[Rfam]
RNA sequence: UUAAGAGGUAGAGGCGCGAUACUUAUUAGUACUAGUAACGAGGUAAGCACAAUGACUUACUAGGAAAGGAAUUAUCGCCGAAGUGUAUAACUGACGCUUUGAGGUUAUAUAACUGGGGAUACAUAGAAUAUAUGUAUUACUGUCGCAAGUAAUUGUGGUGAGCUAUCAUUUAA
Numbered sequence: 001u002u003a004a005g006a007g008g009u010a011g012a013g014g015c016g017c018g019a020u021a022c023u024u025a026u027u028a029g030u031a032c033u034a035g036u037a038a039c040g041a042g043g044u045a046a047g048c049a050c051a052a053u054g055a056c057u058u059a060c061u062a063g064g065a066a067a068g069g070a071a072u073u074a075u076c077g078c079c080g081a082a083g084u085g086u087a088u089a090a091c092u093g094a095c096g097c098u099u100u101g102a103g104g105u106u107a108u109a110u111a112a113c114u115g116g117g118g119a120u121a122c123a124u125a126g127a128a129u130a131u132a133u134g135u136a137u138u139a140c141u142g143u144c145g146c147a148a149g150u151a152a153u154u155g156u157g158g159u160g161a162g163c164u165a166u167c168a169u170u171u172a173a
Base pairs, nucleotide, nucleotide: 007167008166009165010164011163016078017077018076019075020074021073023071024070032063033062034061035060036059037058038057082114083113084112085110086109087108088107089106090105091104092103115141116140118138119137120136121135122134123133124132125131143158144157145156146155147154148153
RNA: Lysine riboswitch aptamer